[Rfam]
RNA: Iron response element II
Nucleotides: 031
Stems, first nucleotide, its partner, number of pairs: 002030001004028004009024005014018001
Number, partner (000 for none) and nucleotide at each position: 001000u002030u003000u004028a005027u006026u007025u008000c009024u010023u011022g012021g013020a014018c015000a016000g017000u018014g019000c020013u021012c022011c023010a024009a025007a026006a027005a028004u029000c030002a031000c